[Rfam]
RNA sequence: CUCUGGAAAGUCAGCCGUGAGGCUGCGCCCAAGGUGCAAGCCGUGAUUCACGGCGAAGCUCUCAGGCCCCCAUGACAGAG
Numbered sequence: 001c002u003c004u005g006g007a008a009a010g011u012c013a014g015c016c017g018u019g020a021g022g023c024u025g026c027g028c029c030c031a032a033g034g035u036g037c038a039a040g041c042c043g044u045g046a047u048u049c050a051c052g053g054c055g056a057a058g059c060u061c062u063c064a065g066g067c068c069c070c071c072a073u074g075a076c077a078g079a080g
Base pairs, nucleotide, nucleotide: 001080002079003078004077005076012025013024014023015022027067028066029065031062034061036059040054041053042052043051044050045049

This 80-nucleotide RNA sequence from Actinoplanes derwentensis belongs to the Rfam family "Glycine riboswitch aptamer". The match comes from Rfam's covariance-model search (45 bits). Taxonomically the source falls in Actinoplanes (Bacteria, Bacillati, Actinomycetes, Micromonosporaceae). Rfam describes the family as follows. This family represents the bacterial glycine riboswitch. Gene Ontology term of the family: glycine biosynthetic process.